Rfam assigns this 308-nucleotide sequence from Carnegiea gigantea to the family "Plant signal recognition particle RNA". It scores 213 bits against the family's covariance model. The organism belongs to Carnegiea, within Eukaryota. The family's RNA type in Rfam is non-coding RNA gene. The family has 63 seed sequences and 4,988 matches in Rfam 15.1.

RNA sequence: GCCGAGCACAGUCACGUGAGCUUGUGACCCAAGUGGGGGCAUUAAGGUGGUGGAACUUGGAGUCAGUCAAUUGGGUCGGAUUUGUGAUGGCUGAAUGCCUGGCUUGCCCUAUCCAAGUUAGGAGCUUGACCCUAGUGACCUAGGUAUAGGCUUGGGUUGAUUGGGUCCUAAAGUGGCGGGGACUGCGUGAGGCUGGUUUCACAGAGCAACGAACACUGCCCGCUCUUGUCAGCGGAAGGAUAACUAUUCGGUGCCAUCAGGAUCCAAUUGUGCCCGAUUGGUUGUGCUCCUAUUGAACCAUUACCUUU
Number, nucleotide and partner (000 for none) at each position: 001g040002c039003c038004g023005a022006g021007c020008a000009c018010a017011g000012u000013c000014a000015c000016g000017u010018g009019a000020g007021c006022u005023u004024g000025u000026g000027a000028c037029c036030c035031a000032a000033g000034u000035g030036g029037g028038g003039g002040c001041a000042u000043u000044a307045a306046g305047g304048u303049g302050g301051u300052g299053g298054a000055a000056c295057u000058u292059g291060g290061a288062g287063u286064c000065a000066g283067u000068c280069a279070a278071u277072u276073g275074g274075g273076u272077c000078g265079g264080a263081u261082u260083u259084g258085u000086g257087a000088u256089g255090g254091c000092u253093g252094a000095a000096u000097g000098c000099c251100u250101g249102g248103c000104u246105u000106g244107c000108c239109c238110u000111a000112u236113c235114c234115a000116a000117g230118u000119u228120a227121g226122g225123a224124g223125c222126u000127u000128g167129a166130c165131c164132c163133u000134a161135g000136u159137g158138a157139c156140c155141u154142a153143g152144g151145u150146a000147u000148a000149g000150g145151c144152u143153u142154g141155g140156g139157u138158u137159g136160a000161u134162u000163g132164g131165g130166u129167c128168c173169u000170a000171a000172a000173g168174u000175g220176g219177c218178g217179g216180g000181g000182a000183c000184u213185g000186c211187g210188u209189g000190a000191g000192g000193c204194u203195g202196g000197u000198u000199u000200c000201a000202c195203a194204g193205a000206g000207c000208a000209a188210c187211g186212a000213a184214c000215a000216c179217u178218g177219c176220c175221c000222g125223c124224u123225c122226u121227u120228g119229u000230c117231a000232g000233c000234g114235g113236a112237a000238g109239g108240a000241u000242a000243a000244c106245u000246a104247u000248u102249c101250g100251g099252u093253g092254c090255c089256a088257u086258c084259a083260g082261g081262a000263u080264c079265c078266a000267a000268u000269u000270g000271u000272g076273c075274c074275c073276g072277a071278u070279u069280g068281g000282u000283u066284g000285u000286g063287c062288u061289c000290c060291u059292a058293u000294u000295g056296a000297a000298c053299c052300a051301u050302u049303a048304c047305c046306u045307u044308u000